[Rfam]
RNA sequence: UUAUAGGACGUUUUAGCUAUUGAACUGUUUUGUUCCUCUCUGUCAAAGAAUACUUAAACUGUUCUUUGACAGAGAGGGACAAAACUGUUCAAUAGCUAAAACGUCCUCUUAC
Number, nucleotide and partner (000 for none) at each position: 001u111002u000003a109004u000005a107006g106007g000008a000009c000010g000011u101012u100013u099014u098015a097016g096017c095018u094019a093020u092021u091022g090023a089024a088025c087026u000027g085028u084029u073030u072031u071032g070033u069034u068035c000036c000037u000038c000039u000040c000041u000042g000043u000044c000045a000046a000047a000048g000049a063050a062051u061052a060053c000054u000055u000056a000057a000058a000059c000060u052061g051062u050063u049064c000065u000066u000067u000068g034069a033070c032071a031072g030073a029074g000075a000076g000077g000078g000079a000080c000081a000082a000083a000084a028085c027086u000087g025088u024089u023090c022091a021092a020093u019094a018095g017096c016097u015098a014099a013100a012101a011102c000103g000104u000105c000106c006107u005108c000109u003110u000111a001112c000
RNA: mir-8517 microRNA precursor family